A member of the RNA family "SAM riboswitch aptamer (S box leader)" from Bacillus anthracis, 122 nucleotides long. It is one of the family's seed sequences. NCBI's taxonomy places the organism under Bacteria, Bacillati, Bacilli, Caryophanales, Bacillus anthracis. Rfam links the family to the GO term regulation of gene expression.
[Rfam]
RNA sequence: CUCUUAUCCCGAGCUGGCGGAGGGACAGGCCCGAUGAAGCCCAGCAACCUCACUUGUAGUGGUAAAUACAGGUGAAUAGGUGCUAAAACCUGUGCGAGGCUACAGGUCUCGAACGAUAAGAG
Numbered sequence: 001c002u003c004u005u006a007u008c009c010c011g012a013g014c015u016g017g018c019g020g021a022g023g024g025a026c027a028g029g030c031c032c033g034a035u036g037a038a039g040c041c042c043a044g045c046a047a048c049c050u051c052a053c054u055u056g057u058a059g060u061g062g063u064a065a066a067u068a069c070a071g072g073u074g075a076a077u078a079g080g081u082g083c084u085a086a087a088a089c090c091u092g093u094g095c096g097a098g099g100c101u102a103c104a105g106g107u108c109u110c111g112a113a114c115g116a117u118a119a120g121a122g
Stems, first nucleotide, its partner, number of pairs: 001122008013042001016041003022032003026094002029089001043084004048080002050075009095111006